This 173-nucleotide sequence from Paenibacillus donghaensis belongs to the Rfam family "Group II catalytic intron D1-D4-3". The base pairs follow the family's consensus structure.
RNA sequence: UCCACCGCGAGGUGGAAUCGGAAGGAAGCCAGCGGCAAAUCUCCGGUCUGAGGAACACGAACUUCAUACAAGGCUAGCGUAUGCUGGAUGAGGUUGCCAAACAAACCAAAGCCCAUACUGCCAAAGGCGUGCGAGAGUAAAUGAAGCAGAUAGAUGGAGAGGAAGAUAGCGUU
Numbered sequence: 001u002c003c004a005c006c007g008c009g010a011g012g013u014g015g016a017a018u019c020g021g022a023a024g025g026a027a028g029c030c031a032g033c034g035g036c037a038a039a040u041c042u043c044c045g046g047u048c049u050g051a052g053g054a055a056c057a058c059g060a061a062c063u064u065c066a067u068a069c070a071a072g073g074c075u076a077g078c079g080u081a082u083g084c085u086g087g088a089u090g091a092g093g094u095u096g097c098c099a100a101a102c103a104a105a106c107c108a109a110a111g112c113c114c115a116u117a118c119u120g121c122c123a124a125a126g127g128c129g130u131g132c133g134a135g136a137g138u139a140a141a142u143g144a145a146g147c148a149g150a151u152a153g154a155u156g157g158a159g160a161g162g163a164a165g166a167u168a169g170c171g172u173u
Base pairs, nucleotide, nucleotide: 001016002015003014004013005012006011028173030171036165040160041159042158043157044156045155046151047150048149049148050147062146063145064144065143066142067141073138074137075136079132080131081130082129083128084127086114087113089111092107093106094105095104